[Rfam]
RNA sequence: GACCGACAAUGGCAAAGCAGGUGAAAGCCUGUGACGCAAAGCUACAGGGGCUUCGGAUGCAUCGGGCAUCCUGCCAGCCAGCUGUCGAA
Numbered sequence: 001g002a003c004c005g006a007c008a009a010u011g012g013c014a015a016a017g018c019a020g021g022u023g024a025a026a027g028c029c030u031g032u033g034a035c036g037c038a039a040a041g042c043u044a045c046a047g048g049g050g051c052u053u054c055g056g057a058u059g060c061a062u063c064g065g066g067c068a069u070c071c072u073g074c075c076a077g078c079c080a081g082c083u084g085u086c087g088a089a
Stems, first nucleotide, its partner, number of pairs: 012037002017032006040083004047079002049075003056070004
Annotation: Rfam assigns this 89-nucleotide RNA from Paenibacillus piri to the family "c-di-GMP-I riboswitch aptamer". The base pairs follow the family's consensus structure, which is taken from published work. The match comes from Rfam's covariance-model search (63 bits). Its family is annotated with cyclic-di-GMP binding in the Gene Ontology.